[Rfam]
RNA: Antisense RNA which regulates isiA expression
Organism: Candidatus Synechococcus spongiarum
RNA sequence: GAUAGCCCCAGACCAUACCCAGAUCAAUGUUGGGCUGCACAGUGCGCACAAUCUGCUGGGCAGGGUCAUAGAUGCCAAAACGCUGGGCCCACUCCACAAAGGCAAUGGCGCCCAAACCCAGGAAGAUGAGAUGAUGGCCAAGGAUGAGGCCAAGUUGCUUUGGAUCAUCCCA
Numbered sequence: 001g002a003u004a005g006c007c008c009c010a011g012a013c014c015a016u017a018c019c020c021a022g023a024u025c026a027a028u029g030u031u032g033g034g035c036u037g038c039a040c041a042g043u044g045c046g047c048a049c050a051a052u053c054u055g056c057u058g059g060g061c062a063g064g065g066u067c068a069u070a071g072a073u074g075c076c077a078a079a080a081c082g083c084u085g086g087g088c089c090c091a092c093u094c095c096a097c098a099a100a101g102g103c104a105a106u107g108g109c110g111c112c113c114a115a116a117c118c119c120a121g122g123a124a125g126a127u128g129a130g131a132u133g134a135u136g137g138c139c140a141a142g143g144a145u146g147a148g149g150c151c152a153a154g155u156u157g158c159u160u161u162g163g164a165u166c167a168u169c170c171c172a
Stems, first nucleotide, its partner, number of pairs: 130169006138163005